[Rfam]
RNA sequence: GCUCCCCUCUCUAAUUCUUGCUCCCCAGGUGAGAGUGCUUUGUGAAUGCAAUCCACCUGGGCAAGGAUUCUGAAUGUGAGAGC
Numbered sequence: 001g002c003u004c005c006c007c008u009c010u011c012u013a014a015u016u017c018u019u020g021c022u023c024c025c026c027a028g029g030u031g032a033g034a035g036u037g038c039u040u041u042g043u044g045a046a047u048g049c050a051a052u053c054c055a056c057c058u059g060g061g062c063a064a065g066g067a068u069u070c071u072g073a074a075u076g077u078g079a080g081a082g083c
Stems, first nucleotide, its partner, number of pairs: 013069007024061008036050003